[Rfam]
RNA sequence: CGUAGUCCGAUCUGGAUGUCCCUCUGAGUCAUACUCGAUGUGAUAUGACUAGAGACACAUUCAGCUUGGCUACAUG
Numbered sequence: 001c002g003u004a005g006u007c008c009g010a011u012c013u014g015g016a017u018g019u020c021c022c023u024c025u026g027a028g029u030c031a032u033a034c035u036c037g038a039u040g041u042g043a044u045a046u047g048a049c050u051a052g053a054g055a056c057a058c059a060u061u062c063a064g065c066u067u068g069g070c071u072a073c074a075u076g
Stems, first nucleotide, its partner, number of pairs: 005071001007069003012064008023054001027050007
Shown here is a 76-nucleotide RNA sequence from Ancylostoma ceylanicum, a member of the family "mir-44 microRNA precursor family". Its family is annotated with RISC complex and miRNA-mediated post-transcriptional gene silencing in the Gene Ontology. The family's consensus secondary structure was predicted with RNAalifold. Taxonomically the source falls in Ancylostoma (Eukaryota, Rhabditida, Strongyloidea, Ancylostomatidae).